[Rfam]
RNA sequence: GCCGGUCCUCGGUUGUGGCCUCCGGGCGCACAUCGGCCGUCCCGGAUGCCUCCAUCGAAGACCGGC
Number, nucleotide and partner (000 for none) at each position: 001g066002c065003c064004g063005g062006u061007c060008c000009u058010c057011g056012g055013u054014u000015g000016u000017g050018g049019c048020c000021u046022c045023c044024g043025g042026g041027c039028g038029c000030a000031c000032a000033u000034c000035g000036g000037c000038c028039g027040u000041c026042c025043c024044g023045g022046a021047u000048g019049c018050c017051u000052c000053c000054a013055u012056c011057g010058a009059a000060g007061a006062c005063c004064g003065g002066c001
RNA: Actino-pnp RNA
Organism: Phytoactinopolyspora halotolerans